Annotation
A member of the RNA family "Glycine riboswitch aptamer" from Lysinibacillus telephonicus, 94 nucleotides long. It scores 72 bits against the family's covariance model.
RNA sequence: AUGAUUGUACGGGGAGAGAACGUGAAAAGCGUCGCCGAAGGAGCAAGUAGUAAACCACUAUGAAUCUCUCAGGCAAAAAGACUCGUACAGGACG
Dot-bracket structure: .....((((((((......((((.....)))).(((((..(((...(((((.....)))))....))))).))).......)))))))).....